[Rfam]
RNA sequence: CUUCAUCGACCCCAGGUACAGGGGCAGGCCGGCGUCGUGUUCCUGGCCGUACGUGGCCAGGAGCGCCUGGGCCUC
Numbered sequence: 001c002u003u004c005a006u007c008g009a010c011c012c013c014a015g016g017u018a019c020a021g022g023g024g025c026a027g028g029c030c031g032g033c034g035u036c037g038u039g040u041u042c043c044u045g046g047c048c049g050u051a052c053g054u055g056g057c058c059a060g061g062a063g064c065g066c067c068u069g070g071g072c073c074u075c
Stems, first nucleotide, its partner, number of pairs: 015025001017023001033069001038065002043060003047056003